[Rfam]
RNA sequence: AAGAGGGGACAGAGCAGAGGCUGGGAAGAGGCAGAGCAUGGAAUGAGUUAUUGACAGAAACAGGGACUGUUUUGGCUCGACCCUGCACUGCCUCUUCCCUGGCCGUCGCCUCUUCCUCUGC
Numbered sequence: 001a002a003g004a005g006g007g008g009a010c011a012g013a014g015c016a017g018a019g020g021c022u023g024g025g026a027a028g029a030g031g032c033a034g035a036g037c038a039u040g041g042a043a044u045g046a047g048u049u050a051u052u053g054a055c056a057g058a059a060a061c062a063g064g065g066a067c068u069g070u071u072u073u074g075g076c077u078c079g080a081c082c083c084u085g086c087a088c089u090g091c092c093u094c095u096u097c098c099c100u101g102g103c104c105g106u107c108g109c110c111u112c113u114u115c116c117u118c119u120g121c
Base pairs, nucleotide, nucleotide: 017104019103021101023099024098025097026096027095029093030092031091032090033089034088036086037085038084040083041082045078046077
Rfam assigns this 121-nucleotide sequence from Eucalyptus grandis to the family "MIR408 microRNA precursor family". A reference for the family is Sunkar and Zhu (2004), "Novel and stress-regulated microRNAs and other small RNAs from Arabidopsis", Plant Cell. The source organism's lineage runs through Eukaryota, Spermatophyta, Myrtoideae, Eucalypteae and Eucalyptus. The match comes from Rfam's covariance-model search (81 bits).